[Rfam]
RNA sequence: GCCUUGGUAGCGCAGAAGGCAGCGCGUAAGUCUCAUAAUCUUAAGGUCGUGAGUUCGAUCCUCACCCAGGGCA
Numbered sequence: 001g002c003c004u005u006g007g008u009a010g011c012g013c014a015g016a017a018g019g020c021a022g023c024g025c026g027u028a029a030g031u032c033u034c035a036u037a038a039u040c041u042u043a044a045g046g047u048c049g050u051g052a053g054u055u056c057g058a059u060c061c062u063c064a065c066c067c068a069g070g071g072c073a
Base pairs, nucleotide, nucleotide: 001072002071003070004069005068006067007066010025011024012023013022027043028042029041030040049065050064051063052062053061
The family of this 73-nucleotide sequence from Melipona bicolor is "tRNA". Pairs were carried over by alignment from the consensus structure, which is taken from published work. By type it is a transfer RNA. It scores 64 bits against the family's covariance model.